[Rfam]
RNA sequence: GUCGGUUAAUGAGGACCUGCACUAAAAGCCCUCAGUGGAGAGGGCAGGUCUGAUGUGCUCCGCCGUC
Dot-bracket structure: (.(((........(((((((.((.....((......))..)).)))))))............))).)
The record is a 67-nucleotide sequence from Pangasianodon hypophthalmus, which matches "Selenocysteine insertion sequence 1" in Rfam.